[Rfam]
This 86-nucleotide RNA sequence from Streptococcus pasteurianus belongs to the Rfam family "Bacterial small signal recognition particle RNA". Taxonomically the source falls in Streptococcus pasteurianus (Bacteria, Bacillota, Streptococcaceae, Streptococcus). Its family is annotated with signal recognition particle, plasma membrane targeting and SRP-dependent cotranslational protein targeting to membrane, signal sequence recognition in the Gene Ontology. On this family, see Rosenblad et al., Nucleic Acids Res 2003: "SRPDB: Signal Recognition Particle Database".

RNA sequence: UCUUCGGAGCAACAUCUGCGCGUGAAGUGGGUCAGGGGAGGAAUCCAGCAGCCCUAAGCGAUUGUAGGUGUGUGCUCUUUUUGUAU
Numbered sequence: 001u002c003u004u005c006g007g008a009g010c011a012a013c014a015u016c017u018g019c020g021c022g023u024g025a026a027g028u029g030g031g032u033c034a035g036g037g038g039a040g041g042a043a044u045c046c047a048g049c050a051g052c053c054c055u056a057a058g059c060g061a062u063u064g065u066a067g068g069u070g071u072g073u074g075c076u077c078u079u080u081u082u083g084u085a086u
Stems, first nucleotide, its partner, number of pairs: 001085001003083001006078004010072001012071006018063001021060003029054004037046003